[Rfam]
RNase MRP: a 274-nucleotide RNA sequence from Capsicum annuum.
The source organism's lineage runs through Eukaryota, Mesangiospermae, Gunneridae, Solanaceae and Capsicum.

RNA sequence: UGACUGCAAGACGACGUGAACGGGUCGAGGUCCAUCCAUUGUGGUGGGCUACGGCCCAGGAAAGUCCCCGGGCCAUUUCUGCAGAGAUGCAGGCUCGGCAACGAGUUAGCUGCAUGGGCUGUGGGAGUUCAGCCCAAUUAAAAUGGGUUGGGCUGAGACGUGGUGGGAGCCUGAUGACUCCUGCCCAGCAGCGGUAUUGGCUAGUUAUGAUGAUAGUCAUUCACGUGGCUCAGUCUAAUUGGGUUAACUGAACGGGGCUUACGUUCUUACAGUC
Numbered sequence: 001u002g003a004c005u006g007c008a009a010g011a012c013g014a015c016g017u018g019a020a021c022g023g024g025u026c027g028a029g030g031u032c033c034a035u036c037c038a039u040u041g042u043g044g045u046g047g048g049c050u051a052c053g054g055c056c057c058a059g060g061a062a063a064g065u066c067c068c069c070g071g072g073c074c075a076u077u078u079c080u081g082c083a084g085a086g087a088u089g090c091a092g093g094c095u096c097g098g099c100a101a102c103g104a105g106u107u108a109g110c111u112g113c114a115u116g117g118g119c120u121g122u123g124g125g126a127g128u129u130c131a132g133c134c135c136a137a138u139u140a141a142a143a144u145g146g147g148u149u150g151g152g153c154u155g156a157g158a159c160g161u162g163g164u165g166g167g168a169g170c171c172u173g174a175u176g177a178c179u180c181c182u183g184c185c186c187a188g189c190a191g192c193g194g195u196a197u198u199g200g201c202u203a204g205u206u207a208u209g210a211u212g213a214u215a216g217u218c219a220u221u222c223a224c225g226u227g228g229c230u231c232a233g234u235c236u237a238a239u240u241g242g243g244u245u246a247a248c249u250g251a252a253c254g255g256g257g258c259u260u261a262c263g264u265u266c267u268u269a270c271a272g273u274c
Stems, first nucleotide, its partner, number of pairs: 002274005008268004014226006022057006029050008062260003066257004080091004092107006109192003116185002123180003135176002164168001228244006